[Rfam]
RNA sequence: UGAGUUGACCAGACCGUCGUCGCUUACCUUCAUUUUGAUAGGUAAGGGGAGGAAAGUCCGGGCUCCACAGGGCAGGGUGCCAGAUAACGUCUGGGGGGCGUGAGCCCACGACAAGUGCAGCAGAGAGAAGACCGCCGAUGACUUCUUCGGAAGAACAGGUAAGGCUGAAAGGGUGCGGUAAGAGCGCACCGCGCAACUGGUAACAGUUUGUGGCGAGGUAAACUCCACCCGGAGCAAGACCAAAUAGGCUUCCUUAAGGUAUGGCCCAUAUCGGAAGCGGGUAGGUUGCUUGAGCCUGUGAGUGAUUGCAGGCCUAGACGAAUGACGGUUCACGACAGAACCCGGCUUAUCGGUCGACUCACCUC
Numbered sequence: 001u002g003a004g005u006u007g008a009c010c011a012g013a014c015c016g017u018c019g020u021c022g023c024u025u026a027c028c029u030u031c032a033u034u035u036u037g038a039u040a041g042g043u044a045a046g047g048g049g050a051g052g053a054a055a056g057u058c059c060g061g062g063c064u065c066c067a068c069a070g071g072g073c074a075g076g077g078u079g080c081c082a083g084a085u086a087a088c089g090u091c092u093g094g095g096g097g098g099c100g101u102g103a104g105c106c107c108a109c110g111a112c113a114a115g116u117g118c119a120g121c122a123g124a125g126a127g128a129a130g131a132c133c134g135c136c137g138a139u140g141a142c143u144u145c146u147u148c149g150g151a152a153g154a155a156c157a158g159g160u161a162a163g164g165c166u167g168a169a170a171g172g173g174u175g176c177g178g179u180a181a182g183a184g185c186g187c188a189c190c191g192c193g194c195a196a197c198u199g200g201u202a203a204c205a206g207u208u209u210g211u212g213g214c215g216a217g218g219u220a221a222a223c224u225c226c227a228c229c230c231g232g233a234g235c236a237a238g239a240c241c242a243a244a245u246a247g248g249c250u251u252c253c254u255u256a257a258g259g260u261a262u263g264g265c266c267c268a269u270a271u272c273g274g275a276a277g278c279g280g281g282u283a284g285g286u287u288g289c290u291u292g293a294g295c296c297u298g299u300g301a302g303u304g305a306u307u308g309c310a311g312g313c314c315u316a317g318a319c320g321a322a323u324g325a326c327g328g329u330u331c332a333c334g335a336c337a338g339a340a341c342c343c344g345g346c347u348u349a350u351c352g353g354u355c356g357a358c359u360c361a362c363c364u365c
Stems, first nucleotide, its partner, number of pairs: 001361010011350001012330007020049002023046006054348003058345005063234004070267004075230005080094005095109001096107004110225002115223002117219002132164002134160003142153004172190006191214001192212005197206003238287004248278006258272005294313008
Dot-bracket structure: ((((((((((((((((((.((.((((((............)))))).))....[[[.[[[[[((((...[[[[.((((((((((.....)))))(((((....)))).)((...((((.............(((((.....((((....))))....)))..)).......((((((.......))))))(((((((((....))).))))).)...))..)))))))))))))...((((......((((((....(((((.]]]]))))))))))).....))))......((((((((....))))))))..........)))))))..........]]]]]]]].).))))))))))....

A member of the RNA family "Bacterial RNase P class A" from Motilimonas pumila, 365 nucleotides long. A search with the family's covariance model found it, with a score of 328 bits. Pairs were carried over by alignment from the consensus structure, which is taken from published work. The source organism's lineage runs through Bacteria, Pseudomonadota, Gammaproteobacteria, Alteromonadales and Motilimonas. Rfam classes the family as a ribozyme.